[Rfam]
RNA sequence: CAUGAAUUCGUGGGGUCCCUCGGCCUGGCCUGUAGGAUCGGGCUGAAACUGGCUCUCCGACAUCCCCUGAGAGGUCCCGGAUUUUGAGAGGAUGCAGGCCAGGCCGAGGGACCCCACUGGUGCACG
Numbered sequence: 001c002a003u004g005a006a007u008u009c010g011u012g013g014g015g016u017c018c019c020u021c022g023g024c025c026u027g028g029c030c031u032g033u034a035g036g037a038u039c040g041g042g043c044u045g046a047a048a049c050u051g052g053c054u055c056u057c058c059g060a061c062a063u064c065c066c067c068u069g070a071g072a073g074g075u076c077c078c079g080g081a082u083u084u085u086g087a088g089a090g091g092a093u094g095c096a097g098g099c100c101a102g103g104c105c106g107a108g109g110g111a112c113c114c115c116a117c118u119g120g121u122g123c124a125c126g
Base pairs, nucleotide, nucleotide: 003124004123006121008119010117012115013114014113015112016111017110018109019108020107021106022105023104024103025102027100028099029098030097031096032095033094034093